[Rfam]
RNA sequence: CAAAGACUGGCCUUCCGAUGGCGACUUGCCGGAGUAGCUAUCAAACCACCUUACGCUGCAAUUAGUGGAAAUACUGUUGUGGUGAACGGCUAAGGAAAAACGGAGACAUCGAUCCCUGAAGGU
Numbered sequence: 001c002a003a004a005g006a007c008u009g010g011c012c013u014u015c016c017g018a019u020g021g022c023g024a025c026u027u028g029c030c031g032g033a034g035u036a037g038c039u040a041u042c043a044a045a046c047c048a049c050c051u052u053a054c055g056c057u058g059c060a061a062u063u064a065g066u067g068g069a070a071a072u073a074c075u076g077u078u079g080u081g082g083u084g085a086a087c088g089g090c091u092a093a094g095g096a097a098a099a100a101c102g103g104a105g106a107c108a109u110c111g112a113u114c115c116c117u118g119a120a121g122g123u
Stems, first nucleotide, its partner, number of pairs: 003014003017042006024035004047122001049095005054089001055083002058080003063076004101118003105114001

Group II catalytic intron D1-D4-2: a 123-nucleotide RNA sequence from Anditalea andensis.
Gene Ontology term of the family: Group II intron splicing.
Lineage of the source: Bacteria > Pseudomonadati > Cytophagales > Cytophagaceae > Anditalea.
Rfam's curators write: Group II introns are found in rRNA, tRNA and mRNA of organelles in fungi, plants and protists, and also in mRNA in bacteria.
On this family, see Bonen and Vogel, Trends Genet 2001: "The ins and outs of group II introns".